This 117-nucleotide sequence from Ruminococcus sp. CAG:353 belongs to the Rfam family "SAM riboswitch aptamer (S box leader)".
[Rfam]
RNA sequence: GCCUUAUCAAGAGCGGCGGAGGUACUGGACCUGUGAAGCCCGGCAACCUGAUUGUUUAUCCUUUGGGAUAUAACGAAAAAGGUGCUAAUUCCUGCGGAGAAUUCCGAGAGAUGAGGA
Numbered sequence: 001g002c003c004u005u006a007u008c009a010a011g012a013g014c015g016g017c018g019g020a021g022g023u024a025c026u027g028g029a030c031c032u033g034u035g036a037a038g039c040c041c042g043g044c045a046a047c048c049u050g051a052u053u054g055u056u057u058a059u060c061c062u063u064u065g066g067g068a069u070a071u072a073a074c075g076a077a078a079a080a081g082g083u084g085c086u087a088a089u090u091c092c093u094g095c096g097g098a099g100a101a102u103u104c105c106g107a108g109a110g111a112u113g114a115g116g117a
Stems, first nucleotide, its partner, number of pairs: 002116007013041001015040003021031003025094001027092002042086004047082002049078001052075001090109001095106004